[Rfam]
Shown here is a 135-nucleotide RNA sequence from Prolemur simus, a member of the family "Small nucleolar RNA SNORA70".
Gene Ontology terms of the family: nucleolus and RNA processing.
Rfam describes the family as follows. snoRNA U70 seems to be exclusive to mammals and is a member of the H/ACA class of snoRNA which contain H (ANANNA) and ACA box motifs. H/ACA box snoRNAs are involved in the conversion of uridines to pseudouridines (5-ribosyluracil) a constituent of structural RNAs (transfer, ribosomal, small nuclear, and small nucleolar).
By type it is an H/ACA-box small nucleolar RNA.
A search with the family's covariance model found it, with a score of 127 bits.

RNA sequence: CUGCUGCCAAUUAAGCUGACCAUGCUCCUUUCCUCAUGGGGGCCCAGUGUGCAAUGACUGUAAACAGCAGCCUCCUUGGUAGUGUACACAGCCUGUUGCUUGUAUGGGUUGCUCUGAGUGACCUUGCACACAACC
Numbered sequence: 001c002u003g004c005u006g007c008c009a010a011u012u013a014a015g016c017u018g019a020c021c022a023u024g025c026u027c028c029u030u031u032c033c034u035c036a037u038g039g040g041g042g043c044c045c046a047g048u049g050u051g052c053a054a055u056g057a058c059u060g061u062a063a064a065c066a067g068c069a070g071c072c073u074c075c076u077u078g079g080u081a082g083u084g085u086a087c088a089c090a091g092c093c094u095g096u097u098g099c100u101u102g103u104a105u106g107g108g109u110u111g112c113u114c115u116g117a118g119u120g121a122c123c124u125u126g127c128a129c130a131c132a133a134c135c
Stems, first nucleotide, its partner, number of pairs: 002053003019048002025042004078123003089111006